[Rfam]
RNA sequence: AUGCUCUGUUUUUUCUUUAGAACAAAUAAAUCUUUCCCCGUUUACUAAAGAUUUCUGUGGAGAGAAACCAUUGUGAGUUGGUAACCAAAUGUUUUGAGGCCUUGCGUAGGCAGGGCU
Numbered sequence: 001a002u003g004c005u006c007u008g009u010u011u012u013u014u015c016u017u018u019a020g021a022a023c024a025a026a027u028a029a030a031u032c033u034u035u036c037c038c039c040g041u042u043u044a045c046u047a048a049a050g051a052u053u054u055c056u057g058u059g060g061a062g063a064g065a066a067a068c069c070a071u072u073g074u075g076a077g078u079u080g081g082u083a084a085c086c087a088a089a090u091g092u093u094u095u096g097a098g099g100c101c102u103u104g105c106g107u108a109g110g111c112a113g114g115g116c117u
Stems, first nucleotide, its partner, number of pairs: 003078004010067010028054008097117001099116006
RNA: U5 spliceosomal RNA